[Rfam]
RNA sequence: UGACCUUGGAUAUCAAGUGUAGGUGGAGCCUGUGGCUGUGGUCCAGGCGACCCAUACUUGGUUUCAAGGGUCU
Dot-bracket structure: .((((((.((.(((.((....(((...((((.............)))).)))....)).))).)).)))))).
A member of the RNA family "mir-551 microRNA precursor family" from Chaetura pelagica, 73 nucleotides long. Lineage of the source: Eukaryota > Teleostomi > Neognathae > Apodidae > Chaetura. A reference for the family is Murchison et al. (2008), "Conservation of small RNA pathways in platypus", Genome Res.